[Rfam]
Annotation: U8 small nucleolar RNA: a 136-nucleotide RNA sequence from Carlito syrichta. The source organism's lineage runs through Eukaryota, Eumetazoa, Mammalia, Eutheria and Carlito. Pairs were carried over by alignment from the consensus structure, which is taken from published work. Rfam 15.1 lists 1,597 matches to the family in 457 species.
RNA sequence: UCAUCAGGUGGGAUCAUCCUUACCUGUUUCUCCUUUUGGAGGACAGAUUAGAACAGGGUGAUUGGAGUUUGUGUGACAUGUGAUUAUCGUCUCUGUGUAAUCAGCACUUGCAACACCCUGAUUGCUUCUAUCUGAU
Numbered sequence: 001u002c003a004u005c006a007g008g009u010g011g012g013a014u015c016a017u018c019c020u021u022a023c024c025u026g027u028u029u030c031u032c033c034u035u036u037u038g039g040a041g042g043a044c045a046g047a048u049u050a051g052a053a054c055a056g057g058g059u060g061a062u063u064g065g066a067g068u069u070u071g072u073g074u075g076a077c078a079u080g081u082g083a084u085u086a087u088c089g090u091c092u093c094u095g096u097g098u099a100a101u102c103a104g105c106a107c108u109u110g111c112a113a114c115a116c117c118c119u120g121a122u123u124g125c126u127u128c129u130a131u132c133u134g135a136u
Stems, first nucleotide, its partner, number of pairs: 024046003028043006075093002078090003081086001097125008